Background: The family of this 128-nucleotide sequence from Desulfoscipio geothermicus is "FMN riboswitch aptamer (RFN element)". A reference for the family is Vitreschak et al. (2002), "Regulation of riboflavin biosynthesis and transport genes in bacteria by transcriptional and translational attenuation", Nucleic Acids Res. It scores 121 bits against the family's covariance model. NCBI's taxonomy places the organism under Bacteria, Bacillati, Clostridia, Eubacteriales, Desulfoscipio geothermicus.
RNA sequence: AAAGACCUUCAGGGACCGGUGAAAUUCCGUACCGGCGGUAAGGAGUAUUCCAAGCCCGCGAGCCCUUGAUGGGUUGAUCCGGUGCAAUUCCGGAGCCGACAGUAUAGUCUGGAUGGGAGAAGGUUGUU
Numbered sequence: 001a002a003a004g005a006c007c008u009u010c011a012g013g014g015a016c017c018g019g020u021g022a023a024a025u026u027c028c029g030u031a032c033c034g035g036c037g038g039u040a041a042g043g044a045g046u047a048u049u050c051c052a053a054g055c056c057c058g059c060g061a062g063c064c065c066u067u068g069a070u071g072g073g074u075u076g077a078u079c080c081g082g083u084g085c086a087a088u089u090c091c092g093g094a095g096c097c098g099a100c101a102g103u104a105u106a107g108u109c110u111g112g113a114u115g116g117g118a119g120a121a122g123g124u125u126g127u128u
Base pairs, nucleotide, nucleotide: 004125005124006123007122008121009120010119017029018028019027031108032107033098034097035059036058037057038056054096055095062074063073064072078094079093080092081091082090100111101110102109